[Rfam]
RNA sequence: UAACGUAAUGAUGCGUUUUAUGCAGUAUUAACCCACUGCGUAGUGGCUAAAACCCACAUCGGACUUCUAUAAAGGAGAAAACAAAUG
Dot-bracket structure: .(((((......))))).(((((((..........)))))))((((.......))))..............................
This 87-nucleotide sequence belongs to the Rfam family "freshwater-2 RNA". The family's consensus secondary structure is taken from published work.